[Rfam]
Rfam assigns this 94-nucleotide sequence from Hymenobacter montanus to the family "SAM riboswitch aptamer (S box leader)". The source organism's lineage runs through Bacteria, Bacteroidota, Cytophagia, Cytophagales and Hymenobacter. The match comes from Rfam's covariance-model search (69 bits).

RNA sequence: UUUUUAUACAGAGGCGUGGAGAGACAGGCUCGACGAAACGCCGGCAACCACCCAGCCCCGGCUGGCACGGUGCCAAGUCCUGACCAUAUAAAAA
Numbered sequence: 001u002u003u004u005u006a007u008a009c010a011g012a013g014g015c016g017u018g019g020a021g022a023g024a025c026a027g028g029c030u031c032g033a034c035g036a037a038a039c040g041c042c043g044g045c046a047a048c049c050a051c052c053c054a055g056c057c058c059c060g061g062c063u064g065g066c067a068c069g070g071u072g073c074c075a076a077g078u079c080c081u082g083a084c085c086a087u088a089u090a091a092a093a094a
Stems, first nucleotide, its partner, number of pairs: 001094008013042005021031003025082004043074004048070002051065002078086001
Dot-bracket structure: ((((((((....(((((...(((.[[[[)))......)))))((((.((.((...........))...))))))...(]]]]...)))))))))